raiA-hairpin RNA: a 49-nucleotide RNA sequence from Streptomyces sp. Tu6071. It is annotated as a small RNA. Pairs were carried over by alignment from the consensus structure, which is taken from published work.

RNA sequence: CACCGUGUCCGGGGCUUCCGGGAAUUCCGGGGGCCUGGUGCAAGUGGGA
Numbered sequence: 001c002a003c004c005g006u007g008u009c010c011g012g013g014g015c016u017u018c019c020g021g022g023a024a025u026u027c028c029g030g031g032g033g034c035c036u037g038g039u040g041c042a043a044g045u046g047g048g049a
Stems, first nucleotide, its partner, number of pairs: 013035008
Dot-bracket structure: ............((((((((.......))))))))..............